This 114-nucleotide RNA sequence from Leptobrachium leishanense belongs to the Rfam family "U5 spliceosomal RNA". About the family: U5 RNA is a component of both types of known spliceosome. The precise function of this molecule is unknown, though it is known that the 5' loop is required for splice site selection and p220 binding, and that both the 3' stem-loop and the Sm site are important for Sm protein binding and cap methylation. The family's consensus secondary structure is taken from published work.
RNA sequence: AGCUCAUCCCUACUCUUCAAUCGAAUAAAUCUUUCGCCUUUUAUUAAAAAUUUCCGUGGAGAGGAACAAGUACGAGUUAAUGGGAAUUUUUGCAGGUCUGACCUCGGUCAGGCA
Numbered sequence: 001a002g003c004u005c006a007u008c009c010c011u012a013c014u015c016u017u018c019a020a021u022c023g024a025a026u027a028a029a030u031c032u033u034u035c036g037c038c039u040u041u042u043a044u045u046a047a048a049a050a051u052u053u054c055c056g057u058g059g060a061g062a063g064g065a066a067c068a069a070g071u072a073c074g075a076g077u078u079a080a081u082g083g084g085a086a087u088u089u090u091u092g093c094a095g096g097u098c099u100g101a102c103c104u105c106g107g108u109c110a111g112g113c114a
Stems, first nucleotide, its partner, number of pairs: 003076003011065001013063007027053004032048003096113006